[Rfam]
RNA sequence: CCCUUAUCUUUUAAAAGUUUCAAGUUGGUCUCUUAUCUUUAUUUUAGGUUUCCCCUUCCGUCAAUUUUUUAACUAUUUCCGUUAAAUUUGGACACGUGGCACACUUGAACAUGUGACACGUGUCCAAAAUUAACGGUAACAGUAAAAAAAUUGACGGAAGGGACCAACUUGAAACCUAAAAAAAAGAUAAGGGACCAACUUGAAACUUUUAAAAGAUAAGGGA
Numbered sequence: 001c002c003c004u005u006a007u008c009u010u011u012u013a014a015a016a017g018u019u020u021c022a023a024g025u026u027g028g029u030c031u032c033u034u035a036u037c038u039u040u041a042u043u044u045u046a047g048g049u050u051u052c053c054c055c056u057u058c059c060g061u062c063a064a065u066u067u068u069u070u071a072a073c074u075a076u077u078u079c080c081g082u083u084a085a086a087u088u089u090g091g092a093c094a095c096g097u098g099g100c101a102c103a104c105u106u107g108a109a110c111a112u113g114u115g116a117c118a119c120g121u122g123u124c125c126a127a128a129a130u131u132a133a134c135g136g137u138a139a140c141a142g143u144a145a146a147a148a149a150a151u152u153g154a155c156g157g158a159a160g161g162g163a164c165c166a167a168c169u170u171g172a173a174a175c176c177u178a179a180a181a182a183a184a185a186g187a188u189a190a191g192g193g194a195c196c197a198a199c200u201u202g203a204a205a206c207u208u209u210u211a212a213a214a215g216a217u218a219a220g221g222g223a
Base pairs, nucleotide, nucleotide: 002221003220004219005218006217007216008215023200024199025198027196028195029194031192032191033190034189035188036187037186038185039184040183042181043180045178046177047176